[Rfam]
RNA sequence: AACCUCCCCUGACCUGGCACAACAUCCUGCUGCGAUGUUGUUCGACCUGCAGUGUCACAAGUCGGGGACGUU
Numbered sequence: 001a002a003c004c005u006c007c008c009c010u011g012a013c014c015u016g017g018c019a020c021a022a023c024a025u026c027c028u029g030c031u032g033c034g035a036u037g038u039u040g041u042u043c044g045a046c047c048u049g050c051a052g053u054g055u056c057a058c059a060a061g062u063c064g065g066g067g068a069c070g071u072u
Stems, first nucleotide, its partner, number of pairs: 001072003005068003009065005021039006044056003
Annotation
Rfam assigns this 72-nucleotide RNA from Claviceps pusilla to the family "bZIP non canonical Hac1/Xbp1 intron". bZIP intron RNA is a non-canonical intron that was first reported in HAC1 gene in yeast and XBP1 gene in Metazoa. Taxonomically the source falls in Claviceps (Eukaryota, Fungi, Ascomycota, Pezizomycotina). It is annotated as a small RNA. Rfam 15.1 lists 1,325 matches to the family in 1,320 species.